[Rfam]
RNA sequence: UGUACUAGAAAUAGGCCAUAGCAGAAGUGCUCACAACGCAGCCCUGUCAGAUUCCAGCAAAUCUGCAAAUUCUGCU
Numbered sequence: 001u002g003u004a005c006u007a008g009a010a011a012u013a014g015g016c017c018a019u020a021g022c023a024g025a026a027g028u029g030c031u032c033a034c035a036a037c038g039c040a041g042c043c044c045u046g047u048c049a050g051a052u053u054c055c056a057g058c059a060a061a062u063c064u065g066c067a068a069a070u071u072c073u074g075c076u
Stems, first nucleotide, its partner, number of pairs: 014043003020076007027039003048065006
RNA: Mammalian CPEB3 ribozyme